[Rfam]
RNA sequence: CUCUUAUUCAGAGUGACGGAGAGUAAAGGCUCUAUGAAGUCACGGCAACCCCCUAGGCGGAAGGUGCCAACCUGAGCGAGUAAAAUCGAGCAAUAAGAG
Numbered sequence: 001c002u003c004u005u006a007u008u009c010a011g012a013g014u015g016a017c018g019g020a021g022a023g024u025a026a027a028g029g030c031u032c033u034a035u036g037a038a039g040u041c042a043c044g045g046c047a048a049c050c051c052c053c054u055a056g057g058c059g060g061a062a063g064g065u066g067c068c069a070a071c072c073u074g075a076g077c078g079a080g081u082a083a084a085a086u087c088g089a090g091c092a093a094u095a096a097g098a099g
Stems, first nucleotide, its partner, number of pairs: 001099008013043005021032003029073001044068004049064002051060002077088003
Annotation:
The record is a 99-nucleotide sequence from Anaerosporobacter mobilis, which matches "SAM riboswitch aptamer (S box leader)" in Rfam. Its family is annotated with regulation of gene expression in the Gene Ontology. Pairs were carried over by alignment from the consensus structure, which is taken from published work. The literature on the family includes a 1998 paper in Mol Microbiol by Grundy and Henkin, "The S box regulon: a new global transcription termination control system for methionine and cysteine biosynthesis genes in gram-positive bacteria".